The record is a 159-nucleotide sequence from Papaver nudicaule, which matches "U1 spliceosomal RNA" in Rfam.
Its Rfam clan is "U1 clan".
Rfam 15.1 lists 40,184 matches to the family in 1,499 species.
U1 is a small nuclear RNA (snRNA) component of the spliceosome (involved in pre-mRNA splicing).
A search with the family's covariance model found it, with a score of 115 bits.
By type it is a spliceosomal small nuclear RNA.

[Rfam]
RNA sequence: AUACUUACCUGGACGGGGUCUAUGGUCGAUCAUGGAGGAUCAUGGCCUAGGUUUGUGACUUCCAUUGCACUUUGGAAGGGUGCUCGCCUUAGAUCUGUCCUUAGAGGCAGAGUCUACGUCAUAAUUUGUUCCUGAGGGGCGUGCGCCUGCGCCGCCCUG
Numbered sequence: 001a002u003a004c005u006u007a008c009c010u011g012g013a014c015g016g017g018g019u020c021u022a023u024g025g026u027c028g029a030u031c032a033u034g035g036a037g038g039a040u041c042a043u044g045g046c047c048u049a050g051g052u053u054u055g056u057g058a059c060u061u062c063c064a065u066u067g068c069a070c071u072u073u074g075g076a077a078g079g080g081u082g083c084u085c086g087c088c089u090u091a092g093a094u095c096u097g098u099c100c101u102u103a104g105a106g107g108c109a110g111a112g113u114c115u116a117c118g119u120c121a122u123a124a125u126u127u128g129u130u131c132c133u134g135a136g137g138g139g140c141g142u143g144c145g146c147c148u149g150c151g152c153c154g155c156c157c158u159g
Stems, first nucleotide, its partner, number of pairs: 012120004016048005023042005049089003053086001055083003059079003062075002091115003094111003098107002136158005143152003